[Rfam]
Nucleotides: 092
Base pairs, nucleotide, nucleotide: 015036016035018034019033020032021031022030023029055080056079057078058077059076060075061074062073063072064071
Number, partner (000 for none) and nucleotide at each position: 001000a002000a003000a004000a005000a006000a007000c008000g009000g010000g011000g012000a013000u014000u015036g016035c017000a018034a019033a020032g021031g022030g023029c024000g025000g026000g027000a028000c029023g030022c031021c032020c033019u034018u035016g036015c037000c038000g039000u040000c041000a042000a043000g044000g045000g046000g047000g048000g049000u050000g051000c052000u053000c054000a055080g056079c057078a058077a059076a060075a061074a062073a063072u064071a065000c066000g067000u068000u069000a070000g071064u072063a073062u074061u075060u076059u077058u078057u079056g080055c081000g082000c083000c084000g085000a086000a087000g088000g089000g090000g091000g092000a
Rfam assigns this 92-nucleotide RNA sequence from Sedimentibacter saalensis to the family "Clostridiales-2 RNA". The match comes from Rfam's covariance-model search (63 bits). The organism belongs to Sedimentibacter, within Bacteria.